This 97-nucleotide sequence from Alteribacillus persepolensis belongs to the Rfam family "Glycine riboswitch aptamer". A search with the family's covariance model found it, with a score of 43 bits. The source organism's lineage runs through Bacteria, Bacilli, Caryophanales, Bacillaceae and Alteribacillus. Gene Ontology term of the family: glycine biosynthetic process.
[Rfam]
RNA sequence: CAUCUCUGGAGAGCGCGUGAUGAACAAACACGCCACCAAAGGGGACGACUCUUUUUAUAGAUAGAGUGAAACUCUCAGGUACAAGGACAGAGGAGGA
Number, nucleotide and partner (000 for none) at each position: 001c095002a000003u093004c092005u091006c090007u089008g088009g000010a000011g000012a000013g000014c000015g033016c032017g031018u030019g000020a000021u000022g000023a000024a000025c000026a000027a000028a000029c000030a018031c017032g016033c015034c000035a080036c079037c078038a000039a075040a000041g000042g074043g073044g072045a000046c000047g000048a067049c066050u065051c064052u063053u000054u000055u000056u000057a000058u000059a000060g000061a000062u000063a052064g051065a050066g049067u048068g000069a000070a000071a000072c044073u043074c042075u039076c000077a000078g037079g036080u035081a000082c000083a000084a000085g000086g000087a000088c008089a007090g006091a005092g004093g003094a000095g001096g000097a000